[Rfam]
RNA sequence: AUUAAUCUUCAGGGCAGGGUGUGAUUCCCGACCGGUGGUAUAGUCCACGAGCGUGAUAAGACGCAUGAACAGGUGUAACUCCUGUACCGAUAGUAUAGUCUAGAUGAAAGAAGAUAUUA
Numbered sequence: 001a002u003u004a005a006u007c008u009u010c011a012g013g014g015c016a017g018g019g020u021g022u023g024a025u026u027c028c029c030g031a032c033c034g035g036u037g038g039u040a041u042a043g044u045c046c047a048c049g050a051g052c053g054u055g056a057u058a059a060g061a062c063g064c065a066u067g068a069a070c071a072g073g074u075g076u077a078a079c080u081c082c083u084g085u086a087c088c089g090a091u092a093g094u095a096u097a098g099u100c101u102a103g104a105u106g107a108a109a110g111a112a113g114a115u116a117u118u119a
Base pairs, nucleotide, nucleotide: 005115006114007113008112009111010110017029018028019027031099032098033089034088035048036047037046038045043087044086069085070084071083072082073081091102092101093100

About this RNA: This 119-nucleotide RNA sequence from Candidatus Izimoplasma sp. HR2 belongs to the Rfam family "FMN riboswitch aptamer (RFN element)". Taxonomically the source falls in Candidatus Izemoplasma (Bacteria, Mycoplasmatota, Candidatus Izemoplasmatales, Candidatus Izemoplasmataceae). Pairs were carried over by alignment from the consensus structure, which is taken from published work. Rfam 15.1 lists 6,230 matches to the family in 5,120 species. Its family is annotated with FMN binding in the Gene Ontology.